[Rfam]
RNA sequence: AAGCCAGCCAAUAAGUCUGCUUACCUGAAUGUGUUCUGCAGAAAUUUAGAGAAAGCUGGCAAUAGUAAAGCCAUGUUACGAGCCUUAAAGACAUUGAAGUCCUUAAGGUCCCUGAAAAUGGCUAUAAGA
Numbered sequence: 001a002a003g004c005c006a007g008c009c010a011a012u013a014a015g016u017c018u019g020c021u022u023a024c025c026u027g028a029a030u031g032u033g034u035u036c037u038g039c040a041g042a043a044a045u046u047u048a049g050a051g052a053a054a055g056c057u058g059g060c061a062a063u064a065g066u067a068a069a070g071c072c073a074u075g076u077u078a079c080g081a082g083c084c085u086u087a088a089a090g091a092c093a094u095u096g097a098a099g100u101c102c103u104u105a106a107g108g109u110c111c112c113u114g115a116a117a118a119u120g121g122c123u124a125u126a127a128g129a
Stems, first nucleotide, its partner, number of pairs: 003060005016042005070122004082109007090101003
RNA: Small nucleolar RNA SNORA33
Organism: Myotis lucifugus